[Rfam]
RNA: SAH (S-adenosyl-L-homocysteine) riboswitch aptamer
RNA sequence: CGGCCCGAGGGGCGCUGCGAGGAUGAUCCAUCCCCAGGCUCGGGCCGCUCCCGCUUCAACGGCGCUCACCUGAU
Numbered sequence: 001c002g003g004c005c006c007g008a009g010g011g012g013c014g015c016u017g018c019g020a021g022g023a024u025g026a027u028c029c030a031u032c033c034c035c036a037g038g039c040u041c042g043g044g045c046c047g048c049u050c051c052c053g054c055u056u057c058a059a060c061g062g063c064g065c066u067c068a069c070c071u072g073a074u
Base pairs, nucleotide, nucleotide: 002046003045004044005043006042007041008040021033022032023031024030025029